Record summary:
This 150-nucleotide RNA from Cohnella lupini belongs to the Rfam family "Group II catalytic intron D1-D4-4". Rfam describes the family as follows. Group II introns are found in rRNA, tRNA and mRNA of organelles in fungi, plants and protists, and also in mRNA in bacteria. The family has 90 seed sequences and 840 matches in Rfam 15.1. The organism belongs to Cohnella, within Bacteria. Gene Ontology term of the family: Group II intron splicing.

Nucleotides: 150
Base pairs, nucleotide, nucleotide: 020043022041023040024039051090052089053088054087055086056081057080058079059078060077061076065072102114103113104112105111120143121142122141
Number, partner (000 for none) and nucleotide at each position: 001000u002000a003000g004000c005000c006000u007000g008000u009000g010000a011000a012000a013000g014000c015000c016000c017000g018000u019000u020043u021000g022041c023040g024039g025000g026000a027000a028000g029000a030000g031000c032000c033000a034000a035000g036000a037000c038000u039024c040023c041022g042000a043020g044000u045000a046000g047000c048000u049000a050000g051090g052089a053088u054087a055086u056081u057080u058079g059078c060077g061076u062000a063000u064000g065072g066000c067000g068000a069000a070000a071000u072065c073000a074000g075000u076061g077060c078059g079058u080057a081056a082000a083000a084000g085000c086055g087054u088053a089052u090051c091000g092000a093000c094000g095000a096000a097000a098000g099000u100000a101000c102114c103113u104112g105111u106000c107000g108000g109000a110000g111105a112104c113103a114102g115000a116000g117000c118000g119000u120143g121142c122141g123000g124000c125000g126000u127000c128000g129000u130000c131000a132000a133000a134000a135000u136000g137000g138000c139000c140000u141122c142121g143120c144000a145000a146000g147000a148000g149000g150000a